[Rfam]
RNA sequence: UAUAAAUCUAGAGGUUGCAGUCUAUCAAUAACAUUAGUCGAGUAGAGGAUUACGUUGACACUAAUGCACAGGGAAGAUUGCCGAAAUGUGAUAAAGUUCCUCGCUUAUCAUGUUGGGUCUAUAGUGAAUAACUAUAGAACUGUCUUAGUUAAAACUAAGAUGCGCUAUGAUUAGA
Numbered sequence: 001u002a003u004a005a006a007u008c009u010a011g012a013g014g015u016u017g018c019a020g021u022c023u024a025u026c027a028a029u030a031a032c033a034u035u036a037g038u039c040g041a042g043u044a045g046a047g048g049a050u051u052a053c054g055u056u057g058a059c060a061c062u063a064a065u066g067c068a069c070a071g072g073g074a075a076g077a078u079u080g081c082c083g084a085a086a087u088g089u090g091a092u093a094a095a096g097u098u099c100c101u102c103g104c105u106u107a108u109c110a111u112g113u114u115g116g117g118u119c120u121a122u123a124g125u126g127a128a129u130a131a132c133u134a135u136a137g138a139a140c141u142g143u144c145u146u147a148g149u150u151a152a153a154a155c156u157a158a159g160a161u162g163c164g165c166u167a168u169g170a171u172u173a174g175a
Stems, first nucleotide, its partner, number of pairs: 007169001009167003017081007025074002032066007085114010096104001115141002118138008143160007
The record is a 175-nucleotide RNA from Vagococcus teuberi, which matches "Lysine riboswitch aptamer" in Rfam. Pairs were carried over by alignment from the consensus structure, which is taken from published work. The organism belongs to Vagococcus, within Bacteria.